[Rfam]
RNA sequence: GGAGGGUUGUCGCCAUAGUAAUUCAACUUAGUACGAGAGGAACCGUUGAUUCAGAUAAUUGGUAUUUGCCCCUGUCCGAACGGGCAAUGGGGCGAAGCUACCAUCUGCUGGAUAAUGGCUGAACGCCUCUAAGCCAGAAUCCGUGCUAGGAGCGACGAUGUUUGGGCGUGGUUUUUUCGGAUAGAAUAGUCCUUUGGACGUAUACCAUAUUGGGGAUCUGUGCCUCGGACGGAAAGGUCUGGGGUGCACUCCGCAUUGCAACUCAAAAAUCCACCCACUAAAAUCCCUUGCAGACGACUUGAAUGGGAACGGGGUGCUGUAAGCAGUAGAGUAUCCUUGUUGAUACGAUCUGCUGAGGCUAAGCCCUUGUUCUAUCGAUUUGG
Numbered sequence: 001g002g003a004g005g006g007u008u009g010u011c012g013c014c015a016u017a018g019u020a021a022u023u024c025a026a027c028u029u030a031g032u033a034c035g036a037g038a039g040g041a042a043c044c045g046u047u048g049a050u051u052c053a054g055a056u057a058a059u060u061g062g063u064a065u066u067u068g069c070c071c072c073u074g075u076c077c078g079a080a081c082g083g084g085c086a087a088u089g090g091g092g093c094g095a096a097g098c099u100a101c102c103a104u105c106u107g108c109u110g111g112a113u114a115a116u117g118g119c120u121g122a123a124c125g126c127c128u129c130u131a132a133g134c135c136a137g138a139a140u141c142c143g144u145g146c147u148a149g150g151a152g153c154g155a156c157g158a159u160g161u162u163u164g165g166g167c168g169u170g171g172u173u174u175u176u177u178c179g180g181a182u183a184g185a186a187u188a189g190u191c192c193u194u195u196g197g198a199c200g201u202a203u204a205c206c207a208u209a210u211u212g213g214g215g216a217u218c219u220g221u222g223c224c225u226c227g228g229a230c231g232g233a234a235a236g237g238u239c240u241g242g243g244g245u246g247c248a249c250u251c252c253g254c255a256u257u258g259c260a261a262c263u264c265a266a267a268a269a270u271c272c273a274c275c276c277a278c279u280a281a282a283a284u285c286c287c288u289u290g291c292a293g294a295c296g297a298c299u300u301g302a303a304u305g306g307g308a309a310c311g312g313g314g315u316g317c318u319g320u321a322a323g324c325a326g327u328a329g330a331g332u333a334u335c336c337u338u339g340u341u342g343a344u345a346c347g348a349u350c351u352g353c354u355g356a357g358g359c360u361a362a363g364c365c366c367u368u369g370u371u372c373u374a375u376c377g378a379u380u381u382g383g
Base pairs, nucleotide, nucleotide: 006159007158008157009156010155011154012153013152016148017147018146019145021051023049024048025047026046027045052107053106054105055104056103060100061099062098067094068093069092070091071090073086074085075084076083077082109143110142111141116136117135118134119133120132166276168274169273170272171271281381282380283379284378285377287301290298306373307372308371309370310369311368312366313365314364316359317358323353324352325351326350328349331346332345333344334343335342
Shown here is a 383-nucleotide part of an RNA from Acaromyces ingoldii, a member of the family "Eukaryotic large subunit ribosomal RNA". Taxonomically the source falls in Acaromyces (Eukaryota, Fungi, Basidiomycota, Exobasidiomycetes). Its family is annotated with structural constituent of ribosome and ribosome in the Gene Ontology. Pairs were carried over by alignment from the consensus structure, which is taken from published work.